[Rfam]
RNA sequence: UGACUGAAACGGCAAACCGGAGGAAACUCCGGGACGCAAAGCAAGGGGGCUAAGGCGGGAACGCUACGCCAGCCCGGCUGCCAAA
Numbered sequence: 001u002g003a004c005u006g007a008a009a010c011g012g013c014a015a016a017c018c019g020g021a022g023g024a025a026a027c028u029c030c031g032g033g034a035c036g037c038a039a040a041g042c043a044a045g046g047g048g049g050c051u052a053a054g055g056c057g058g059g060a061a062c063g064c065u066a067c068g069c070c071a072g073c074c075c076g077g078c079u080g081c082c083a084a085a
Base pairs, nucleotide, nucleotide: 012037013036017032018031019030020029021028022027040079041078042077045075046074047073048070049069050068055064056063057062
Background: The record is an 85-nucleotide sequence from Oscillibacter sp. CAG:155, which matches "c-di-GMP-I riboswitch aptamer" in Rfam. NCBI's taxonomy places the organism under Bacteria, Bacillati, Bacillota, Eubacteriales, Oscillibacter. For this family Rfam cites "Identification of 22 candidate structured RNAs in bacteria using the CMfinder comparative genomics pipeline" (Weinberg et al., Nucleic Acids Res, 2007).